Tryptophan operon leader: a 95-nucleotide RNA sequence from Salmonella enterica. Rfam classes the family as a cis-regulatory leader. Its family is annotated with tryptophan biosynthetic process and transcriptional attenuation by ribosome in the Gene Ontology. The family's consensus secondary structure is taken from published work. The literature on the family includes a 1982 paper in Annu Rev Genet by Kolter and Yanofsky, "Attenuation in amino acid biosynthetic operons". Lineage of the source: Bacteria > Pseudomonadati > Salmonella > Salmonella enterica > Salmonella enterica subsp. arizonae. From the family's description: At least 6 amino acid operons are known to be regulated by attenuation.
RNA sequence: CACGGCUGGUGGCGCACUCCCUGAUAUCGGGCAGUGUAUGACAGCUUUAAUAAGCCAAAAGAUACCCGGCCCGCCUGUGAAGCGGGCUUUUUUUG
Numbered sequence: 001c002a003c004g005g006c007u008g009g010u011g012g013c014g015c016a017c018u019c020c021c022u023g024a025u026a027u028c029g030g031g032c033a034g035u036g037u038a039u040g041a042c043a044g045c046u047u048u049a050a051u052a053a054g055c056c057a058a059a060a061g062a063u064a065c066c067c068g069g070c071c072c073g074c075c076u077g078u079g080a081a082g083c084g085g086g087c088u089u090u091u092u093u094u095g
Stems, first nucleotide, its partner, number of pairs: 009042002012039001014037005020031004068088007